[Rfam]
About this RNA
Rfam assigns this 73-nucleotide RNA to the family "tRNA". The sequence is in the family's curated seed alignment. By type it is a transfer RNA.

RNA sequence: GCCUACUUAACUCAGUGGUUAGAGUAUUGCUUUCAUACGGCGGGAGUCAUUGGUUCAAAUCCAAUAGUAGGUA
Number, nucleotide and partner (000 for none) at each position: 001g072002c071003c070004u069005a068006c067007u066008u000009a000010a025011c024012u023013c022014a000015g000016u000017g000018g000019u000020u000021a000022g013023a012024g011025u010026a000027u043028u042029g041030c040031u039032u000033u000034c000035a000036u000037a000038c000039g031040g030041c029042g028043g027044g000045a000046g000047u000048c000049a065050u064051u063052g062053g061054u000055u000056c000057a000058a000059a000060u000061c053062c052063a051064a050065u049066a007067g006068u005069a004070g003071g002072u001073a000